Annotation:
This 149-nucleotide sequence from Ketogulonicigenium vulgare belongs to the Rfam family "FMN riboswitch aptamer (RFN element)".

[Rfam]
Nucleotides: 149
Stems, first nucleotide, its partner, number of pairs: 004146007017029003031129002033118002035069004064116002072094002098114005120132003
Number, partner (000 for none) and nucleotide at each position: 001000c002000c003000g004146u005145g006144u007143c008142u009141u010140c011000g012000g013000g014000g015000c016000g017029a018028g019027g020000u021000g022000c023000g024000a025000c026000u027019c028018c029017u030000c031129a032128c033118c034117g035069g036068c037067g038066g039000u040000a041000g042000a043000u044000g045000c046000g047000g048000c049000g050000g051000a052000a053000a054000c055000c056000c057000c058000g059000c060000a061000u062000a063000a064116g065115u066038c067037c068036g069035c070000g071000a072094g073093c074000g075000c076000u077000u078000g079000c080000g081000c082000a083000a084000g085000c086000a087000a088000g089000g090000u091000c092000a093073g094072c095000a096000g097000a098114u099113c100112u101111g102110g103000u104000c105000a106000g107000a108000u109000g110102c111101c112100a113099g114098a115065a116064c117034c118033g119000a120132c121131g122130g123000u124000c125000a126000u127000a128032g129031u130122c131121c132120g133000g134000a135000u136000g137000a138000a139000a140010g141009a142008a143007g144006a145005c146004g147000g148000c149000u
The match comes from Rfam's covariance-model search (102 bits). The RFN element is a highly conserved domain that is found frequently in the 5'-untranslated regions of prokaryotic mRNAs that encode for flavin mononucleotide (FMN) biosynthesis and transport proteins. This element is a metabolite-dependent riboswitch that directly binds FMN in the absence of proteins. In Bacillus subtilis, the riboswitch most likely controls gene expression by causing premature transcription termination within the 5' untranslated region of the ribDEAHT operon and precluding access to the ribosome-binding site of ypaA mRNA.The FMN riboswitch structure, reported in present an FMN-bound six-stem junction, adopts a butterfly-like scaffold, stapled together by opposingly directed but nearly identically folded peripheral domains. Taxonomically the source falls in Ketogulonicigenium vulgare (Bacteria, Alphaproteobacteria, Roseobacteraceae, Ketogulonicigenium). Pairs were carried over by alignment from the consensus structure, which is taken from published work.